[Rfam]
Nucleotides: 060
Stems, first nucleotide, its partner, number of pairs: 034057004041052004
Number, partner (000 for none) and nucleotide at each position: 001000a002000a003000g004000u005000g006000u007000u008000a009000g010000a011000g012000c013000u014000c015000u016000u017000c018000u019000a020000g021000a022000a023000u024000u025000u026000g027000u028000c029000u030000a031000g032000c033000a034057g035056g036055u037054u038000c039000u040000c041052u042051g043050g044049u045000u046000u047000u048000u049044a050043c051042u052041g053000a054037a055036a056035c057034c058000a059000a060000a

A member of the RNA family "U7 small nuclear RNA" from Homo sapiens, 60 nucleotides long. The organism belongs to Homo, within Eukaryota. Rfam describes the family as follows. Animal histone pre-mRNAs are spliced by a different mechanism than nuclear pre-mRNAs and self-splicing introns. This processing involves the U7 snRNP, which contains only one RNA species: U7. The 5' end of U7 RNA is thought to base-pair to a conserved spacer element downstream of the cleavage site in histone pre-mRNA. This family contains a number of annotated U7 pseudogenes. Pairs were carried over by alignment from the consensus structure, which was predicted with PFOLD. The family has 49 seed sequences and 10,439 matches in Rfam 15.1.